[Rfam]
RNA sequence: CAGUGUUACGGCUCUUUUAGAAUUAGCCUAGCAGGUUUUCCAGUUUUCACCAGAAAACUAAA
Numbered sequence: 001c002a003g004u005g006u007u008a009c010g011g012c013u014c015u016u017u018u019a020g021a022a023u024u025a026g027c028c029u030a031g032c033a034g035g036u037u038u039u040c041c042a043g044u045u046u047u048c049a050c051c052a053g054a055a056a057a058c059u060a061a062a
Stems, first nucleotide, its partner, number of pairs: 034059007043050002
Dot-bracket structure: .................................(((((((..((....))..)))))))...
RNA: U7 small nuclear RNA